A member of the RNA family "Bacterial RNase P class B" from Mesobacillus campisalis, 378 nucleotides long. The family's RNA type in Rfam is ribozyme. From the family's description: Ribonuclease P (RNase P) is a ubiquitous endoribonuclease, found in archaea, bacteria and eukarya as well as chloroplasts and mitochondria. Its best characterised activity is the generation of mature 5'-ends of tRNAs by cleaving the 5'-leader elements of precursor-tRNAs. Pairs were carried over by alignment from the consensus structure, which is taken from published work. The family is grouped with related families in Rfam's "RNaseP clan".

RNA sequence: GCGUUCGGGUAACCGCUGCAGUUUUUCUGCAGAGGAAAGUCCAUGCUCGCACGGGCUGAGAUGUCCGUAGUGUUCGUGCCUGGCCAAUUCAUAAGCCAGGGCAGCCUGAUUGGCUGACGGCAGGGAAAAUGCCUAAGUCUUCGGAUAUGGCAUGAAUACCUAUAAAAGUGCCACAGUGACGUAGCCUUCCCAGAAAUGGGAAGGGUGGAACGAGGUAAACCCCGCGAGCGAGAAACCCAAAUAAUGGUAGGGGCACUUUCCUGGAGGAAAUGAACGAAGGGAAGGACAGGUGAUGCCACCUGUAGAUAGAUGGUUACCACCGGAGUGCGAGGCUAAUUGCCGGUCGCAGCACAAUGGAACAAAACAUGGCUUACAGAG
Numbered sequence: 001g002c003g004u005u006c007g008g009g010u011a012a013c014c015g016c017u018g019c020a021g022u023u024u025u026u027c028u029g030c031a032g033a034g035g036a037a038a039g040u041c042c043a044u045g046c047u048c049g050c051a052c053g054g055g056c057u058g059a060g061a062u063g064u065c066c067g068u069a070g071u072g073u074u075c076g077u078g079c080c081u082g083g084c085c086a087a088u089u090c091a092u093a094a095g096c097c098a099g100g101g102c103a104g105c106c107u108g109a110u111u112g113g114c115u116g117a118c119g120g121c122a123g124g125g126a127a128a129a130u131g132c133c134u135a136a137g138u139c140u141u142c143g144g145a146u147a148u149g150g151c152a153u154g155a156a157u158a159c160c161u162a163u164a165a166a167a168g169u170g171c172c173a174c175a176g177u178g179a180c181g182u183a184g185c186c187u188u189c190c191c192a193g194a195a196a197u198g199g200g201a202a203g204g205g206u207g208g209a210a211c212g213a214g215g216u217a218a219a220c221c222c223c224g225c226g227a228g229c230g231a232g233a234a235a236c237c238c239a240a241a242u243a244a245u246g247g248u249a250g251g252g253g254c255a256c257u258u259u260c261c262u263g264g265a266g267g268a269a270a271u272g273a274a275c276g277a278a279g280g281g282a283a284g285g286a287c288a289g290g291u292g293a294u295g296c297c298a299c300c301u302g303u304a305g306a307u308a309g310a311u312g313g314u315u316a317c318c319a320c321c322g323g324a325g326u327g328c329g330a331g332g333c334u335a336a337u338u339g340c341c342g343g344u345c346g347c348a349g350c351a352c353a354a355u356g357g358a359a360c361a362a363a364a365c366a367u368g369g370c371u372u373a374c375a376g377a378g
Base pairs, nucleotide, nucleotide: 004378005377006376007374008318009317010316011315012314013313014312016032017031018030019029020028021027037372038371039370041369042368043367044366045365046232047231048230049229050228051068052067053066054065055064056063074227075226076225077224078223079100080099081098082097083096084095101118102116103115104114105113106112119222120221122161123160124159130152131151132150133149137146138145139144168220169219170216171215172214185204186203187202188201189200190199191198192197236252237251238250256285257284258283259282260281261280262279286303287302288301289300290299291298320357321356322355325352326351327350328349